The record is a 118-nucleotide RNA from Linum usitatissimum, which matches "MIR828 microRNA precursor family" in Rfam. On this family, see Fahlgren et al., Plant Cell 2010: "MicroRNA gene evolution in Arabidopsis lyrata and Arabidopsis thaliana". The organism belongs to Linum, within Eukaryota.

RNA sequence: GUAAACGUUUCUUGCUCAAAUGAGUGUUCCAAAACCAGCAAGCGAUGGAGCAGUUCUGGGUUCAAAUACUCCAUCUGUUGUUUGCAUCUGAGAUGCUCAUUUGGGCAAGCAGUGUUUC
Numbered sequence: 001g002u003a004a005a006c007g008u009u010u011c012u013u014g015c016u017c018a019a020a021u022g023a024g025u026g027u028u029c030c031a032a033a034a035c036c037a038g039c040a041a042g043c044g045a046u047g048g049a050g051c052a053g054u055u056c057u058g059g060g061u062u063c064a065a066a067u068a069c070u071c072c073a074u075c076u077g078u079u080g081u082u083u084g085c086a087u088c089u090g091a092g093a094u095g096c097u098c099a100u101u102u103g104g105g106c107a108a109g110c111a112g113u114g115u116u117u118c
Stems, first nucleotide, its partner, number of pairs: 004115001006114004011109018030090002